[Rfam]
RNA sequence: GGAGCGGACCGGACGGUCGCGGCGGGACGCUGUUUCUUCGGAAGCGGCGGAUUCGUCGAGGAAAGUCCGGGCUCCACAGGACAGGGUGGUGGGUAACGCCCACCGGGCGACGCGGUCUUCUUCGGGAACCGCGGAAGCCCCGGGCCAGUGCCACAGAAAGCAAACCGCCGAACGGUCGGCCGCGGCGUUCGCGUCGCGGUCGGUGCGUGGUAAGGGUGAAAGGGUGCGGUAAGAGCGCACCGGGCCGGCGGCGACGUCGGUCGCACGGUCAACCCCUCCCGGAGCAAGGCCGAACAGGGCGGAGGAAUCGCCGGCCCGGUCACGGGAAACCGUGGCUGGGGCGGAACGAACGCGGCUCGGUCCGGGCCGUUCGACGUCCGGGUGGGCUGCUUGAGCGCCGUGGCAACACAGCGUCCAGAGAAAUGACCGUCGCCCUCGACGACCGGCUUGCCGAUCGGCGGGGGGACAGGACCCGGCUUACAGGUCCGCUCCGGUU
Numbered sequence: 001g002g003a004g005c006g007g008a009c010c011g012g013a014c015g016g017u018c019g020c021g022g023c024g025g026g027a028c029g030c031u032g033u034u035u036c037u038u039c040g041g042a043a044g045c046g047g048c049g050g051a052u053u054c055g056u057c058g059a060g061g062a063a064a065g066u067c068c069g070g071g072c073u074c075c076a077c078a079g080g081a082c083a084g085g086g087u088g089g090u091g092g093g094u095a096a097c098g099c100c101c102a103c104c105g106g107g108c109g110a111c112g113c114g115g116u117c118u119u120c121u122u123c124g125g126g127a128a129c130c131g132c133g134g135a136a137g138c139c140c141c142g143g144g145c146c147a148g149u150g151c152c153a154c155a156g157a158a159a160g161c162a163a164a165c166c167g168c169c170g171a172a173c174g175g176u177c178g179g180c181c182g183c184g185g186c187g188u189u190c191g192c193g194u195c196g197c198g199g200u201c202g203g204u205g206c207g208u209g210g211u212a213a214g215g216g217u218g219a220a221a222g223g224g225u226g227c228g229g230u231a232a233g234a235g236c237g238c239a240c241c242g243g244g245c246c247g248g249c250g251g252c253g254a255c256g257u258c259g260g261u262c263g264c265a266c267g268g269u270c271a272a273c274c275c276c277u278c279c280c281g282g283a284g285c286a287a288g289g290c291c292g293a294a295c296a297g298g299g300c301g302g303a304g305g306a307a308u309c310g311c312c313g314g315c316c317c318g319g320u321c322a323c324g325g326g327a328a329a330c331c332g333u334g335g336c337u338g339g340g341g342c343g344g345a346a347c348g349a350a351c352g353c354g355g356c357u358c359g360g361u362c363c364g365g366g367c368c369g370u371u372c373g374a375c376g377u378c379c380g381g382g383u384g385g386g387c388u389g390c391u392u393g394a395g396c397g398c399c400g401u402g403g404c405a406a407c408a409c410a411g412c413g414u415c416c417a418g419a420g421a422a423a424u425g426a427c428c429g430u431c432g433c434c435c436u437c438g439a440c441g442a443c444c445g446g447c448u449u450g451c452c453g454a455u456c457g458g459c460g461g462g463g464g465g466a467c468a469g470g471a472c473c474c475g476g477c478u479u480a481c482a483g484g485u486c487c488g489c490u491c492c493g494g495u496u
Base pairs, nucleotide, nucleotide: 001492002491003490004489005488006487007486008485009484010483011481012431013430014429015428016427017426018425020058021057022056023055024054025053026052028050063479064478065477067476068475069474070473071472072284073283074282075281079363080362081361082360084280085279086278088276089103090102091101092100093099104142105140106139107138108137143275144274148273149272150269151268152267165215166214167211168210169209172208173207174206177203223241224240225239226238227237228236242264243262244261245260246259247258248257249256250255288388289387290386291385298379299378300376301375354368355367356366357365358364395414396413397412398411400409401408402407